[Rfam]
RNA sequence: AAACGUUCACCUUGUUGCUUAACAAGGCGCAGCACGACUCAGGCCAUGGAACGGGGGCUUGGG
Numbered sequence: 001a002a003a004c005g006u007u008c009a010c011c012u013u014g015u016u017g018c019u020u021a022a023c024a025a026g027g028c029g030c031a032g033c034a035c036g037a038c039u040c041a042g043g044c045c046a047u048g049g050a051a052c053g054g055g056g057g058c059u060u061g062g063g
Stems, first nucleotide, its partner, number of pairs: 004053005010027005038063006044056002
Glutamine-II riboswitch aptamer: a 63-nucleotide sequence.
Pairs were carried over by alignment from the consensus structure, which is taken from published work.